Description:
Rfam assigns this 145-nucleotide RNA sequence from Drosophila ananassae to the family "Small nucleolar RNA psi28S-3378". psi28S-3378 is a member of the H/ACA class of snoRNA.
[Rfam]
RNA sequence: AGCACCAAAAUCAGUAACCAUGCGACUGCUAAACUAGCAUGGCGACUACGCUUGGGUGCUGACAGUAACUUCGCUAUAAUGCCGCAUACUAAACCAGAGCAUGACAACUCAGCCCUAGAAUGCUUGUGGCCUUGUUUCGAGACAA
Dot-bracket structure: ((((((......(((..((((((.............))))))..))).......)))))).........((((..((((.(((((...........((((((...(.........)...))))))))))).))))..))))....
Numbered sequence: 001a002g003c004a005c006c007a008a009a010a011u012c013a014g015u016a017a018c019c020a021u022g023c024g025a026c027u028g029c030u031a032a033a034c035u036a037g038c039a040u041g042g043c044g045a046c047u048a049c050g051c052u053u054g055g056g057u058g059c060u061g062a063c064a065g066u067a068a069c070u071u072c073g074c075u076a077u078a079a080u081g082c083c084g085c086a087u088a089c090u091a092a093a094c095c096a097g098a099g100c101a102u103g104a105c106a107a108c109u110c111a112g113c114c115c116u117a118g119a120a121u122g123c124u125u126g127u128g129g130c131c132u133u134g135u136u137u138c139g140a141g142a143c144a145a
Stems, first nucleotide, its partner, number of pairs: 001060006013047003018042006070141004076135004081130005097125006106116001